[Rfam]
RNA: mir-3926 microRNA precursor family
RNA sequence: GGAGCUGGCCAAAAAGCAGGCAGAGACGCUUUUAAAGUCUCUGCCUGCUUUUUGGCCAGCUCC
Numbered sequence: 001g002g003a004g005c006u007g008g009c010c011a012a013a014a015a016g017c018a019g020g021c022a023g024a025g026a027c028g029c030u031u032u033u034a035a036a037g038u039c040u041c042u043g044c045c046u047g048c049u050u051u052u053u054g055g056c057c058a059g060c061u062c063c
Stems, first nucleotide, its partner, number of pairs: 001063027